[Rfam]
RNA sequence: AAGACUAUACUUUCAGGGAUCAUUUCUAUAGUUUGUUACUAGAGAAGUUUCUCUGAAUAUGUAGAGCACCCGAAACCAUGAGGAGGAGAUGUAGUGUCCUCUCCUGAGCGUGAAGCUGGUCCUUGGUGUUGCUUCUGCAACUGCCACUGACCAUUGAUGAUCGUUCUUCUUUUCCUUUGGGAGAGUAAGAGGGAGAAGACACUGUCUGAGUGGU
Numbered sequence: 001a002a003g004a005c006u007a008u009a010c011u012u013u014c015a016g017g018g019a020u021c022a023u024u025u026c027u028a029u030a031g032u033u034u035g036u037u038a039c040u041a042g043a044g045a046a047g048u049u050u051c052u053c054u055g056a057a058u059a060u061g062u063a064g065a066g067c068a069c070c071c072g073a074a075a076c077c078a079u080g081a082g083g084a085g086g087a088g089a090u091g092u093a094g095u096g097u098c099c100u101c102u103c104c105u106g107a108g109c110g111u112g113a114a115g116c117u118g119g120u121c122c123u124u125g126g127u128g129u130u131g132c133u134u135c136u137g138c139a140a141c142u143g144c145c146a147c148u149g150a151c152c153a154u155u156g157a158u159g160a161u162c163g164u165u166c167u168u169c170u171u172u173u174c175c176u177u178u179g180g181g182a183g184a185g186u187a188a189g190a191g192g193g194a195g196a197a198g199a200c201a202c203u204g205u206c207u208g209a210g211u212g213g214u
Base pairs, nucleotide, nucleotide: 002040003039006035007034009032010031011030015027016026017025018024049065050064054061075214076213077212078211079210094202095201096200097199098198100196101195102194103193104192105191108164109163110162118152119151120150121149124146125145126144127143128141129140130139131138132137167188168187169185170184171183172182173181174180175179
Shown here is a 214-nucleotide RNA from Bos grunniens, a member of the family "Small nucleolar RNA U3". The literature on the family includes a 1997 paper in Nucleic Acids Res by Zwieb, "The uRNA database". Pairs were carried over by alignment from the consensus structure, which is taken from published work. Gene Ontology terms of the family: nucleolus and RNA processing. Lineage of the source: Eukaryota > Eumetazoa > Bilateria > Theria > Bos. Small nucleolar RNAs (snoRNAs) are involved in the processing and modification of rRNA in the nucleolus.